[Rfam]
RNA sequence: GCUAUCCCCAGAUACAAUGGACAAUAUGCUAUUGUAAUUGUAUGGCACUGUUCUUGCUGUUUGGACAUAAU
Numbered sequence: 001g002c003u004a005u006c007c008c009c010a011g012a013u014a015c016a017a018u019g020g021a022c023a024a025u026a027u028g029c030u031a032u033u034g035u036a037a038u039u040g041u042a043u044g045g046c047a048c049u050g051u052u053c054u055u056g057c058u059g060u061u062u063g064g065a066c067a068u069a070a071u
Base pairs, nucleotide, nucleotide: 004068005067008064009063010062011061012060013059014058015056016055017054019053020052021051022050023049027047028046029045030044031043032042
Shown here is a 71-nucleotide sequence from Mesocricetus auratus, a member of the family "mir-2355 microRNA precursor family". The family has 2 seed sequences and 107 matches in Rfam 15.1. The family's consensus secondary structure was predicted with RNAalifold. Rfam links the family to the GO terms miRNA-mediated post-transcriptional gene silencing and RISC complex. The organism belongs to Mesocricetus, within Eukaryota.